Source information:
mir-1677 microRNA precursor family: a 75-nucleotide RNA.

[Rfam]
RNA sequence: UAGGGUCUGAUCCUGCACCGCUGAAGUCAAUGGAAGCUUUGUCAUUGACUUCAAUAGGAGCAGGAUUUGAACCUU
Number, nucleotide and partner (000 for none) at each position: 001u000002a074003g073004g072005g000006u070007c069008u000009g067010a066011u000012c064013c063014u000015g061016c060017a000018c058019c057020g000021c000022u053023g052024a051025a050026g049027u048028c047029a046030a045031u044032g043033g042034a000035a000036g000037c000038u000039u000040u000041g000042u033043c032044a031045u030046u029047g028048a027049c026050u025051u024052c023053a022054a000055u000056a000057g019058g018059a000060g016061c015062a000063g013064g012065a000066u010067u009068u000069g007070a006071a000072c004073c003074u002075u000
Rfam 15.1 lists 310 matches to the family in 309 species. Gene Ontology terms of the family: miRNA-mediated post-transcriptional gene silencing and RISC complex.